Shown here is a 75-nucleotide RNA from Sphingobium indicum, a member of the family "Makes More Granules Regulator RNA (mmgR)". NCBI's taxonomy places the organism under Bacteria, Pseudomonadati, Sphingomonadales, Sphingobium, Sphingobium indicum. Pairs were carried over by alignment from the consensus structure.
RNA sequence: AGGGGGUGCCUUUCAGGCAUCCUCUCCUAAAACUUUUCGGGCUGGCCUUCGGGUCGGCCCUUUUUUUGUGCAGAU
Numbered sequence: 001a002g003g004g005g006g007u008g009c010c011u012u013u014c015a016g017g018c019a020u021c022c023u024c025u026c027c028u029a030a031a032a033c034u035u036u037u038c039g040g041g042c043u044g045g046c047c048u049u050c051g052g053g054u055c056g057g058c059c060c061u062u063u064u065u066u067u068g069u070g071c072a073g074a075u
Stems, first nucleotide, its partner, number of pairs: 008018004039060009